[Rfam]
RNA sequence: AGGGGGCCCGAAGCCAGGAGGAAGCUGUACUCCUGGUGGAAGGACUAGAGGUUAGAGGAGACCCCCCCAACACA
Dot-bracket structure: .(((((((....((((((((.........))))))))....))......((((......)))))))))......
RNA: Flavivirus DB element